[Rfam]
RNA sequence: GGAAGAUUAGCGUAUCUGGUGAUCGCCACUGACUUCAAAUCAGAUGAAAGGAUAGUUGACUAUUCUUUGGGGAGUUCGAUUCUCUCAUCUUCU
Dot-bracket structure: .((((((..(((.(((....))))))..((((.......)))).....((((...........))))...((((.......)))).)))))).

Selenocysteine transfer RNA: a 93-nucleotide sequence from Campylobacter jejuni. Its Rfam clan is "tRNA clan". Gene Ontology term of the family: triplet codon-amino acid adaptor activity. Rfam's curators put it in the seed alignment.